[Rfam]
RNA sequence: UUAUUUUAAAAAGCGCCAGGACUAACCGAGGACGGAAAAGGUUAGUUGACGAGGGUGGAGGAGUAUCGAGUUUUCGGCGGAUGCCUCCCGGCUGCAGAGCACAGUCGCAAUCUCUUCUUUAAAUCAGCAGGGCAACCUGUUGGACAAAGGGAAGGGAAUGCUUAAUA
Numbered sequence: 001u002u003a004u005u006u007u008a009a010a011a012a013g014c015g016c017c018a019g020g021a022c023u024a025a026c027c028g029a030g031g032a033c034g035g036a037a038a039a040g041g042u043u044a045g046u047u048g049a050c051g052a053g054g055g056u057g058g059a060g061g062a063g064u065a066u067c068g069a070g071u072u073u074u075c076g077g078c079g080g081a082u083g084c085c086u087c088c089c090g091g092c093u094g095c096a097g098a099g100c101a102c103a104g105u106c107g108c109a110a111u112c113u114c115u116u117c118u119u120u121a122a123a124u125c126a127g128c129a130g131g132g133c134a135a136c137c138u139g140u141u142g143g144a145c146a147a148a149g150g151g152a153a154g155g156g157a158a159u160g161c162u163u164a165a166u167a
Stems, first nucleotide, its partner, number of pairs: 020047008057088005066077004089107006111157007125142007

Rfam assigns this 167-nucleotide RNA from Mesobacillus foraminis to the family "glmS glucosamine-6-phosphate activated ribozyme aptamer".
The source organism's lineage runs through Bacteria, Bacillota, Caryophanales, Bacillaceae and Mesobacillus.